Rfam assigns this 122-nucleotide sequence from Paraburkholderia ribeironis to the family "Burkholderia RNA 11". Co-purified with Hfq, expression confirmed by Northern blot. Predicted target marZ. Overlaps coding sequence. Rfam links the family to the GO term protein binding. It scores 76 bits against the family's covariance model. Pairs were carried over by alignment from the consensus structure, which was predicted with RNAfold. It is annotated as a small RNA. The source organism's lineage runs through Bacteria, Pseudomonadati, Pseudomonadota, Betaproteobacteria and Paraburkholderia.
RNA sequence: GCAACCUGAAGCUCGCGCACGAAAACCGCACCGUGUUCCUCAGUCUGCUGGGCAUUUCCUGGCUAUGGUUCGUCGGCGCGACGUUUCUGUCGUCGUUUUUCAGCUUCGCGAAAAACGUGCUG
Numbered sequence: 001g002c003a004a005c006c007u008g009a010a011g012c013u014c015g016c017g018c019a020c021g022a023a024a025a026c027c028g029c030a031c032c033g034u035g036u037u038c039c040u041c042a043g044u045c046u047g048c049u050g051g052g053c054a055u056u057u058c059c060u061g062g063c064u065a066u067g068g069u070u071c072g073u074c075g076g077c078g079c080g081a082c083g084u085u086u087c088u089g090u091c092g093u094c095g096u097u098u099u100u101c102a103g104c105u106u107c108g109c110g111a112a113a114a115a116c117g118u119g120c121u122g
Stems, first nucleotide, its partner, number of pairs: 010049003015044001019040001021038003025034002051121005057115001060112001067099002071095002074092005080087002